[Rfam]
RNA sequence: CACUGUUGAGGAUGAUUGUUAAAAACAAUGGGAAUCUCUCAGAACACCUGAAGACUAACCUUUUACCUGAAACAGUG
Numbered sequence: 001c002a003c004u005g006u007u008g009a010g011g012a013u014g015a016u017u018g019u020u021a022a023a024a025a026c027a028a029u030g031g032g033a034a035u036c037u038c039u040c041a042g043a044a045c046a047c048c049u050g051a052a053g054a055c056u057a058a059c060c061u062u063u064u065a066c067c068u069g070a071a072a073c074a075g076u077g
Stems, first nucleotide, its partner, number of pairs: 001077007
RNA: Small nucleolar RNA SNORD79
Organism: Conger conger